The family of this 128-nucleotide RNA sequence from Flavimaricola marinus is "Ruegeria cis8 sRNA". NCBI's taxonomy places the organism under Bacteria, Pseudomonadati, Pseudomonadota, Alphaproteobacteria, Flavimaricola. The family has 2 seed sequences and 138 matches in Rfam 15.1. Pairs were carried over by alignment from the consensus structure, which was predicted with RNAfold.
Nucleotides: 128
Base pairs, nucleotide, nucleotide: 003018004017005016006015007014008013026128027127029125031123033122034121036119038114039113040112043109046106048104050102051101052100053099054098061093062092073083074082075081
Number, partner (000 for none) and nucleotide at each position: 001000a002000u003018c004017g005016u006015c007014a008013g009000g010000a011000u012000u013008u014007u015006g016005g017004c018003g019000a020000u021000g022000u023000a024000g025000g026128g027127g028000a029125u030000g031123a032000g033122u034121g035000g036119c037000a038114g039113g040112u041000u042000c043109a044000g045000u046106a047000u048104c049000a050102a051101c052100a053099g054098g055000a056000c057000c058000a059000g060000g061093u062092u063000c064000c065000c066000g067000a068000u069000a070000u071000a072000c073083a074082u075081c076000g077000a078000g079000a080000u081075g082074a083073u084000a085000a086000c087000a088000g089000c090000c091000c092062a093061g094000a095000a096000c097000a098054c099053u100052u101051g102050u103000g104048g105000c106046u107000c108000a109043u110000c111000g112040g113039u114038c115000a116000u117000g118000a119036g120000a121034c122033g123031u124000g125029g126000a127027c128026c
The match comes from Rfam's covariance-model search (85 bits).